Rfam assigns this 134-nucleotide RNA sequence from Odobenus rosmarus to the family "Small nucleolar RNA SNORA71". Rfam 15.1 lists 1,805 matches to the family in 606 species. A search with the family's covariance model found it, with a score of 87 bits. The base pairs follow the family's consensus structure, which was predicted with PFOLD. By type it is an H/ACA-box small nucleolar RNA. Rfam describes the family as follows. The members of this family belong to the H/ACA class of snoRNAs which bind a number of proteins (including dyskerin, Gar1p and Nop10p) to form snoRNP complexes. This class of snoRNAs are thought to guide the sites of modification of uridines to pseudouridines by forming direct base pairing interactions with substrate RNAs. Its family is annotated with nucleolus and RNA processing in the Gene Ontology.
[Rfam]
Nucleotides: 134
Stems, first nucleotide, its partner, number of pairs: 001057008014045008025035002067131001070129004083117005088111005
Number, partner (000 for none) and nucleotide at each position: 001057u002056c003055c004054u005053g006052c007051a008050c009000c010000c011000a012000a013000a014045a015044g016043u017042g018041a019040c020039u021038g022000c023000c024000u025035g026034c027000u028000g029000u030000c031000u032000u033000u034026g035025c036000c037000c038021u039020g040019g041018u042017c043016a044015u045014u046000g047000a048000u049000a050008g051007u052006g053005u054004a055003g056002g057001g058000a059000g060000a061000g062000g063000a064000a065000u066000c067131a068000c069000u070129g071128a072127a073126a074000a075000a076000a077000g078000u079000u080000c081000c082000u083117g084116u085115u086114u087113g088111a089110a090109g091108g092107g093000u094000c095000c096000a097000g098000c099000c100000a101000g102000c103000c104000a105000u106000c107092c108091c109090c110089u111088u112000c113087c114086a115085a116084g117083c118000c119000c120000u121000g122000g123000a124000c125000c126073u127072u128071u129070c130000u131067u132000a133000c134000a